[Rfam]
This 86-nucleotide RNA from Maledivibacter halophilus belongs to the Rfam family "Group II catalytic intron D1-D4-1". A search with the family's covariance model found it, with a score of 51 bits. Group II introns are found in rRNA, tRNA and mRNA of organelles in fungi, plants and protists, and also in mRNA in bacteria.
RNA sequence: UAACCUACAUAGGGAUAUGUAACUAAACUGUCAGAAAUCAGUAGAGAUCAUAAUACCACCCUAUGUGCACAUAGGGUGAGAAGGAC
Numbered sequence: 001u002a003a004c005c006u007a008c009a010u011a012g013g014g015a016u017a018u019g020u021a022a023c024u025a026a027a028c029u030g031u032c033a034g035a036a037a038u039c040a041g042u043a044g045a046g047a048u049c050a051u052a053a054u055a056c057c058a059c060c061c062u063a064u065g066u067g068c069a070c071a072u073a074g075g076g077u078g079a080g081a082a083g084g085a086c
Stems, first nucleotide, its partner, number of pairs: 001025002006021006038045002048085002057078007